The record is a 229-nucleotide sequence from Pandoraea thiooxydans, which matches "Manganese Mn2+ riboswitch aptamer (yybP-ykoY)" in Rfam. The literature on the family includes a 2015 paper in Mol Cell by Dambach et al., "The ubiquitous yybP-ykoY riboswitch is a manganese-responsive regulatory element". Lineage of the source: Bacteria > Pseudomonadati > Betaproteobacteria > Burkholderiaceae > Pandoraea. A search with the family's covariance model found it, with a score of 71 bits.
[Rfam]
RNA sequence: CCGCACUUCAUUGGGGAGUAGCCGCCCUGCCGGUCACGGCAGGGGCGCAUGUCAACAGACUUGGCUGCCGAAUUUCACCGGCGACCAUGGCAUGCGCAGCCACACAUGGGCCUGGCCAGACCAAUGACCGACUCCCUCGCGACGGGCCGGAGGGGGACGGUCAUUGGCAAACCAUAUCGGCCCGGCGGAGCGCUCGAUGUCCCCUUUUCUUAUCUCGACCGGUGUGGUC
Numbered sequence: 001c002c003g004c005a006c007u008u009c010a011u012u013g014g015g016g017a018g019u020a021g022c023c024g025c026c027c028u029g030c031c032g033g034u035c036a037c038g039g040c041a042g043g044g045g046c047g048c049a050u051g052u053c054a055a056c057a058g059a060c061u062u063g064g065c066u067g068c069c070g071a072a073u074u075u076c077a078c079c080g081g082c083g084a085c086c087a088u089g090g091c092a093u094g095c096g097c098a099g100c101c102a103c104a105c106a107u108g109g110g111c112c113u114g115g116c117c118a119g120a121c122c123a124a125u126g127a128c129c130g131a132c133u134c135c136c137u138c139g140c141g142a143c144g145g146g147c148c149g150g151a152g153g154g155g156g157a158c159g160g161u162c163a164u165u166g167g168c169a170a171a172c173c174a175u176a177u178c179g180g181c182c183c184g185g186c187g188g189a190g191c192g193c194u195c196g197a198u199g200u201c202c203c204c205u206u207u208u209c210u211u212a213u214c215u216c217g218a219c220c221g222g223u224g225u226g227g228u229c
Stems, first nucleotide, its partner, number of pairs: 026043003045097010062087003099228007